[Rfam]
RNA sequence: CCCAUGCAUAUAUGAUGAUACACAUGUUGGUAGGGACAUCUGAAUAUAGUGAAGAAUGCCAACUGUUCUGACUGCAUGGG
Dot-bracket structure: (((((......................................................................)))))

Shown here is an 80-nucleotide RNA from Cottoperca gobio, a member of the family "Small nucleolar RNA SNORD74". NCBI's taxonomy places the organism under Eukaryota, Metazoa, Chordata, Euteleosteomorpha, Cottoperca. On this family, see Galardi et al., Mol Cell Biol 2002: "Purified box C/D snoRNPs are able to reproduce site-specific 2'-O-methylation of target RNA in vitro". The family's consensus secondary structure was predicted with PFOLD. Its family is annotated with nucleolus and RNA processing in the Gene Ontology. Its Rfam clan is "SNORD74 clan". A search with the family's covariance model found it, with a score of 74 bits.